The family of this 279-nucleotide RNA sequence from Nannospalax galili is "Mason-Pfizer monkey virus packaging signal". A search with the family's covariance model found it, with a score of 161 bits. Rfam links the family to the GO term viral genome packaging. Rfam's curators write: This family represents a group of sequences that are related to the Mason-Pfizer monkey virus (MPMV) packaging signal. The packaging signal is located in the 5' UTR and is required for specific RNA encapsidation. By type it is a cis-regulatory element. For this family Rfam cites "Mutational analysis of the predicted secondary RNA structure of the Mason-Pfizer monkey virus packaging signal" (Mustafa et al., Virus Res, 2004).
RNA sequence: UGGCGCCCAACGUGUGGCUGGAUACUGGGGGCACAUCAGGAGAGAGACGAUGGAGAAAAAGGAGUGCACUCGCUAAAUCUCAAGGAAUUCAGAGAUGUGCCGCCGGAGCCUGCCGUCACCGAACCGAAGGUAAGUUGUGCCAUCUGAUCAUGGGGCAAGAAUUGAGCCAGCAUCAGAUUUAUGUUAAGCAAUUGAGAGAGGCUCUAAAGACACGAGGAGUAAAGGUUAGGACUGCAGAUUUAUUUCAUUUCUUUGAUUUUGUAAAAGACAUUUGUCCCU
Number, nucleotide and partner (000 for none) at each position: 001u000002g000003g000004c000005g000006c030007c029008c028009a000010a000011c000012g025013u024014g023015u000016g000017g000018c000019u000020g000021g000022a000023u014024a013025c012026u000027g000028g008029g007030g006031g000032c000033a000034c000035a000036u050037c049038a000039g000040g000041a000042g000043a000044g000045a000046g000047a000048c000049g037050a036051u000052g000053g000054a000055g000056a000057a000058a000059a000060a000061g000062g000063a000064g000065u000066g000067c000068a000069c000070u000071c000072g000073c000074u000075a000076a000077a000078u000079c000080u000081c000082a000083a000084g000085g000086a000087a000088u129089u127090c126091a000092g000093a000094g000095a000096u121097g119098u118099g000100c000101c115102g114103c000104c000105g113106g000107a000108g000109c000110c000111u000112g000113c105114c102115g101116u000117c000118a098119c097120c000121g096122a000123a000124c000125c000126g090127a089128a000129g088130g000131u000132a000133a000134g000135u000136u000137g000138u157139g156140c155141c000142a000143u154144c153145u152146g151147a000148u000149c000150a000151u146152g145153g144154g143155g140156c139157a138158a000159g000160a000161a000162u000163u206164g205165a000166g202167c201168c200169a000170g000171c000172a000173u000174c000175a000176g000177a000178u000179u000180u000181a000182u000183g000184u000185u000186a000187a000188g000189c000190a000191a000192u000193u000194g000195a000196g000197a000198g000199a000200g168201g167202c166203u000204c000205u164206a163207a000208a000209g000210a000211c000212a000213c255214g254215a253216g252217g251218a250219g249220u000221a000222a000223a241224g240225g239226u238227u237228a000229g000230g000231a000232c000233u000234g000235c000236a000237g227238a226239u225240u224241u223242a000243u000244u000245u000246c000247a000248u000249u219250u218251c217252u216253u215254u214255g213256a000257u000258u000259u000260u000261g000262u000263a000264a279265a000266a000267g276268a275269c274270a000271u000272u000273u000274g269275u268276c267277c000278c000279u264